RNA: MIR397 microRNA precursor family
RNA sequence: GGAAGAAACAUCAUUGAGUGCAGCGUUGAUGAAUUCUAUCAGUUUCAGAGAUGAAUUUGCCAGCGCUGCACUCAAUCAUGUUUUUU
Numbered sequence: 001g002g003a004a005g006a007a008a009c010a011u012c013a014u015u016g017a018g019u020g021c022a023g024c025g026u027u028g029a030u031g032a033a034u035u036c037u038a039u040c041a042g043u044u045u046c047a048g049a050g051a052u053g054a055a056u057u058u059g060c061c062a063g064c065g066c067u068g069c070a071c072u073c074a075a076u077c078a079u080g081u082u083u084u085u086u
Base pairs, nucleotide, nucleotide: 006083007082008081009080010079011078013076014075015074016073017072018071019070020069021068022067023066024065025064026063027062028061030059031058032057033056034055035054036053